[Rfam]
RNA sequence: GGAUCAAUGAUGAGUCGCCCAUCAAAACAUUCCUUGGAAAAGCUGAACAACACCAGUGAAACUCACUACCAUCUCACUCAUCAGAACUGAGGUCC
Numbered sequence: 001g002g003a004u005c006a007a008u009g010a011u012g013a014g015u016c017g018c019c020c021a022u023c024a025a026a027a028c029a030u031u032c033c034u035u036g037g038a039a040a041a042g043c044u045g046a047a048c049a050a051c052a053c054c055a056g057u058g059a060a061a062c063u064c065a066c067u068a069c070c071a072u073c074u075c076a077c078u079c080a081u082c083a084g085a086a087c088u089g090a091g092g093u094c095c
Stems, first nucleotide, its partner, number of pairs: 001095005028058004034050003